[Rfam]
RNA: Lysine riboswitch aptamer
RNA sequence: UCAUAGAGUAGAGGUUGCGUCAAUCAUCAGUAACAAGCCGGAUGUGGCAGGCACAGAAGAAGGUUUGGGAAAGGGAACGACGCCGAAGAGAGGAUGCGCCUGCGCGGCAUGCUGCUCUGGGGAUAUGGCGAACAGCCAUAUAACUGUCAUCCCGAGCGGAUGGUGAGCUACCUGAAAG
Numbered sequence: 001u002c003a004u005a006g007a008g009u010a011g012a013g014g015u016u017g018c019g020u021c022a023a024u025c026a027u028c029a030g031u032a033a034c035a036a037g038c039c040g041g042a043u044g045u046g047g048c049a050g051g052c053a054c055a056g057a058a059g060a061a062g063g064u065u066u067g068g069g070a071a072a073g074g075g076a077a078c079g080a081c082g083c084c085g086a087a088g089a090g091a092g093g094a095u096g097c098g099c100c101u102g103c104g105c106g107g108c109a110u111g112c113u114g115c116u117c118u119g120g121g122g123a124u125a126u127g128g129c130g131a132a133c134a135g136c137c138a139u140a141u142a143a144c145u146g147u148c149a150u151c152c153c154g155a156g157c158g159g160a161u162g163g164u165g166a167g168c169u170a171c172c173u174g175a176a177a178g
Base pairs, nucleotide, nucleotide: 006173008171009170010169011168017083018082019081020080021079024076025075034067035066036065037064038063039062087118088117089116090115091113092112094110095109096108097107119145120144123141124140125139126138127137128136129135147163148162149161150160151159152158